About this RNA: Shown here is an 87-nucleotide sequence from Thermoanaerobacteraceae bacterium SP2, a member of the family "c-di-GMP-I riboswitch aptamer". Taxonomically the source falls in Thermoanaerobacteraceae (Bacteria, Bacillati, Bacillota, Thermoanaerobacterales). GEMM was predicted in a large-scale screen for bacterial structured RNA regulatory elements.
[Rfam]
RNA sequence: AAUUGAAAAGGGUAAACUCGUCGAAAGGCGAGGGCACAAAGCCGCAAGUCUACAGCAUACAAAUGCCAUGACGGUUGGGCUGCCAAU
Numbered sequence: 001a002a003u004u005g006a007a008a009a010g011g012g013u014a015a016a017c018u019c020g021u022c023g024a025a026a027g028g029c030g031a032g033g034g035c036a037c038a039a040a041g042c043c044g045c046a047a048g049u050c051u052a053c054a055g056c057a058u059a060c061a062a063a064u065g066c067c068a069u070g071a072c073g074g075u076u077g078g079g080c081u082g083c084c085a086a087u
Base pairs, nucleotide, nucleotide: 012037013036017032018031019030020029021028022027040081041080042079043078045077046076047075048072049071050070055066056065057064058063